[Rfam]
RNA sequence: CGACCUCAGAUCAGACGAGAUCACCCGCCGAAUUUAAGCAUAUUAGUAAGCGGAGGAAAAGAAACUAACCAGGAUUCCCCGAGUAGCGGCGAGCGAAAAGGGAAGAGCCCAGCGCCGAAUCCCACGUCCCGUCGGUCGGACGUCGGGAAAUGUGGCGUGAGGGAGCGCUUCGAAACUCACACAGAUUCGCGUCCGGAGCUCGCUCGCGAGUCCAAGUCCAUCUUGAAAGAGGCCACAGCCCGGAGAGGGUGCCAGGCCCGUAGAGGCGGCGGCGAGUUCGGACGGGAAGCGUCUCCUCAGAGUCGGGUUGCUUGGUAGUGCAGCCCAAAGCAGGUGGUAUACUCCAUCUAAGGCUAAACACGGCCACGAGACCGAUAGCGAACAAGUACCGUGAGGGAAAGUUGAAAAGGACUUUGAAGAGAGAGUUCAACAGUACGUGAAACCGUUCGGGGGUAAG
Numbered sequence: 001c002g003a004c005c006u007c008a009g010a011u012c013a014g015a016c017g018a019g020a021u022c023a024c025c026c027g028c029c030g031a032a033u034u035u036a037a038g039c040a041u042a043u044u045a046g047u048a049a050g051c052g053g054a055g056g057a058a059a060a061g062a063a064a065c066u067a068a069c070c071a072g073g074a075u076u077c078c079c080c081g082a083g084u085a086g087c088g089g090c091g092a093g094c095g096a097a098a099a100g101g102g103a104a105g106a107g108c109c110c111a112g113c114g115c116c117g118a119a120u121c122c123c124a125c126g127u128c129c130c131g132u133c134g135g136u137c138g139g140a141c142g143u144c145g146g147g148a149a150a151u152g153u154g155g156c157g158u159g160a161g162g163g164a165g166c167g168c169u170u171c172g173a174a175a176c177u178c179a180c181a182c183a184g185a186u187u188c189g190c191g192u193c194c195g196g197a198g199c200u201c202g203c204u205c206g207c208g209a210g211u212c213c214a215a216g217u218c219c220a221u222c223u224u225g226a227a228a229g230a231g232g233c234c235a236c237a238g239c240c241c242g243g244a245g246a247g248g249g250u251g252c253c254a255g256g257c258c259c260g261u262a263g264a265g266g267c268g269g270c271g272g273c274g275a276g277u278u279c280g281g282a283c284g285g286g287a288a289g290c291g292u293c294u295c296c297u298c299a300g301a302g303u304c305g306g307g308u309u310g311c312u313u314g315g316u317a318g319u320g321c322a323g324c325c326c327a328a329a330g331c332a333g334g335u336g337g338u339a340u341a342c343u344c345c346a347u348c349u350a351a352g353g354c355u356a357a358a359c360a361c362g363g364c365c366a367c368g369a370g371a372c373c374g375a376u377a378g379c380g381a382a383c384a385a386g387u388a389c390c391g392u393g394a395g396g397g398a399a400a401g402u403u404g405a406a407a408a409g410g411a412c413u414u415u416g417a418a419g420a421g422a423g424a425g426u427u428c429a430a431c432a433g434u435a436c437g438u439g440a441a442a443c444c445g446u447u448c449g450g451g452g453g454u455a456a457g
Stems, first nucleotide, its partner, number of pairs: 024055001025053004035042002065072002076103004086094002106355004113157005119151001120148004124143005162296002165292007196279007206270002210267003216233001218232002221230002241245001248258002305326007332349005389396002412423004

Rfam assigns this 457-nucleotide part of an RNA from Pediculus humanus to the family "Eukaryotic large subunit ribosomal RNA". A search with the family's covariance model found it, with a score of 2654 bits. Gene Ontology terms of the family: ribosome and structural constituent of ribosome.